[Rfam]
RNA sequence: UGGUUAAAAUUUAAUAAAACUUAUUUAUGCUACGAAUGGGCGUAGCGUUUCUACAAGACACCGUAAUGUCUAACAAUAAGUCUUUGCUCAAUGAUA
Numbered sequence: 001u002g003g004u005u006a007a008a009a010u011u012u013a014a015u016a017a018a019a020c021u022u023a024u025u026u027a028u029g030c031u032a033c034g035a036a037u038g039g040g041c042g043u044a045g046c047g048u049u050u051c052u053a054c055a056a057g058a059c060a061c062c063g064u065a066a067u068g069u070c071u072a073a074c075a076a077u078a079a080g081u082c083u084u085u086g087c088u089c090a091a092u093g094a095u096a
Stems, first nucleotide, its partner, number of pairs: 019081007029046006056071005
Purine riboswitch aptamer: a 96-nucleotide sequence from Streptococcus pasteurianus. Taxonomically the source falls in Streptococcus pasteurianus (Bacteria, Bacillati, Streptococcaceae, Streptococcus). A search with the family's covariance model found it, with a score of 55 bits. About the family: Riboswitches are metabolite binding domains within certain messenger RNAs that serve as precision sensors for their corresponding targets. Pairs were carried over by alignment from the consensus structure, which is taken from published work. Rfam links the family to the GO term purine nucleobase biosynthetic process.